[Rfam]
Nucleotides: 095
Stems, first nucleotide, its partner, number of pairs: 007089007020034004036075003039071002043069003049062004
Number, partner (000 for none) and nucleotide at each position: 001000a002000u003000g004000a005000g006000g007089a008088u009087a010086c011085g012084g013083g014000g015000a016000g017000a018000g019000a020034a021033c022032g023031c024000c025000u026000a027000a028000a029000g030000u031023g032022c033021g034020u035000c036075g037074c038073c039071g040070a041000a042000g043069g044068a045067g046000c047000a048000a049062g050061u051060a052059a053000a054000g055000a056000a057000a058000u059052u060051u061050a062049u063000g064000a065000a066000u067045c068044u069043c070040u071039c072000a073038g074037g075036c076000a077000a078000a079000a080000g081000a082000a083013c084012u085011c086010g087009u088008a089007u090000a091000g092000g093000a094000c095000g